[Rfam]
RNA sequence: AAGGAACGUCUACCCAAUACGGCAGAAGCGGGGGAACCACUUUUCGGUUUCUCUUUAGGGGAGAAGCCUAGGGGCUAAGUCGCGCAAGUGACCGAGUGAAUCCAUGCUCGAGCCCGACAGCUUACCUCGUCAGGCAAUGGAGGAAUAUUAC
Dot-bracket structure: ..........(.((...(.(....).)((((((....(................................)(((.....((((....))))..((((........))))...))).........))))))..)).)...............
RNA: c-di-AMP riboswitch aptamer (ydaO/yuaA leader)